Source information:
Shown here is a 220-nucleotide RNA from Paenibacillus stellifer, a member of the family "glmS glucosamine-6-phosphate activated ribozyme aptamer". Lineage of the source: Bacteria > Bacillota > Bacilli > Caryophanales > Paenibacillus. It is annotated as a riboswitch. About the family: This entry contains a glucosamine-6-phosphate activated ribozyme that is found in the mRNA for GlmS. GlmS is an enzyme that uses fructose-6-phosphate and glutamine to generate glucosamine-6-phosphate. The ribozyme catalyses self cleavage of the glmS mRNA that is thought to regulate GlmS activity.
Nucleotides: 220
Stems, first nucleotide, its partner, number of pairs: 020103006112143005120132004144161004166210007181195003185192002
Number, partner (000 for none) and nucleotide at each position: 001000c002000a003000c004000a005000c006000a007000a008000c009000g010000u011000a012000a013000g014000c015000g016000c017000c018000a019000g020103a021102g022101c023100u024099u025098g026000a027000g028000g029000c030000u031000g032000c033000g034000c035000g036000g037000g038000g039000g040000a041000g042000a043000a044000g045000g046000a047000u048000g049000a050000u051000c052000u053000u054000g055000g056000c057000g058000u059000c060000u061000g062000u063000u064000a065000g066000u067000c068000a069000g070000a071000c072000g073000u074000u075000a076000g077000c078000g079000a080000u081000a082000c083000c084000g085000g086000a087000u088000c089000a090000c091000g092000g093000c094000a095000g096000a097000g098025c099024a100023a101022g102021c103020u104000g105000a106000c107000g108000a109000g110000g111000u112143g113142g114141a115140g116139g117000u118000g119000u120132u121131c122130g123129a124000a125000a126000u127000g128000u129123u130122c131121g132120g133000c134000g135000g136000g137000g138000a139116c140115c141114u142113c143112c144161c145160g146159g147158u148000a149000c150000a151000g152000c153000g154000c155000c156000a157000g158147a159146c160145c161144g162000u163000a164000a165000g166210c167209g168208g169207a170206a171205g172204c173000g174000g175000a176000a177000a178000a179000c180000g181195a182194a183193c184000a185192g186191g187000g188000c189000a190000a191186c192185c193183g194182u195181u196000c197000a198000g199000a200000c201000a202000a203000c204172g205171c206170u207169u208168u209167u210166g211000u212000g213000g214000g215000c216000g217000u218000a219000u220000g